[Rfam]
RNA sequence: AGAGGCACUCUGUGGCUGGGCGCGGAAUGCUUGCCUCAUCGCCACGGCGAUGAAGCAAGCCUUCUGCCAGGCCGCUCACGUUGCCAGC
Numbered sequence: 001a002g003a004g005g006c007a008c009u010c011u012g013u014g015g016c017u018g019g020g021c022g023c024g025g026a027a028u029g030c031u032u033g034c035c036u037c038a039u040c041g042c043c044a045c046g047g048c049g050a051u052g053a054a055g056c057a058a059g060c061c062u063u064c065u066g067c068c069a070g071g072c073c074g075c076u077c078a079c080g081u082u083g084c085c086a087g088c
Stems, first nucleotide, its partner, number of pairs: 004085003012075006020068001022067006029060006038051005
Overview: This 88-nucleotide sequence from Cnephaeus nilssonii belongs to the Rfam family "mir-9195 microRNA precursor family". Lineage of the source: Eukaryota > Mammalia > Theria > Eutheria > Cnephaeus. A search with the family's covariance model found it, with a score of 93 bits.